Description:
The family of this 161-nucleotide sequence from Cellulosimicrobium sp. MM is "c-di-AMP riboswitch aptamer (ydaO/yuaA leader)".
RNA sequence: GAGAGGCCCACGACGACCCGAUGACAGGGACGGGGGACCCACUUCCGGGUGCUGGAGACAGCGCCCUUGGGGUGAAGCCCGACGGACUCCGGUCCGCCGGGCCGGGUGACUCUUCCACCCGAACCCGACAGCUGACCUCGCAGGCGUCCAGGAGAGGCAAC
Numbered sequence: 001g002a003g004a005g006g007c008c009c010a011c012g013a014c015g016a017c018c019c020g021a022u023g024a025c026a027g028g029g030a031c032g033g034g035g036g037a038c039c040c041a042c043u044u045c046c047g048g049g050u051g052c053u054g055g056a057g058a059c060a061g062c063g064c065c066c067u068u069g070g071g072g073u074g075a076a077g078c079c080c081g082a083c084g085g086a087c088u089c090c091g092g093u094c095c096g097c098c099g100g101g102c103c104g105g106g107u108g109a110c111u112c113u114u115c116c117a118c119c120c121g122a123a124c125c126c127g128a129c130a131g132c133u134g135a136c137c138u139c140g141c142a143g144g145c146g147u148c149c150a151g152g153a154g155a156g157g158c159a160a161c
Base pairs, nucleotide, nucleotide: 006145007144008143017029018028019027031140032139033138034137035136040069041068070126071125072124078101079100080099081098104120105119106118107117

The pairing is the family consensus, mapped onto this sequence. It scores 65 bits against the family's covariance model.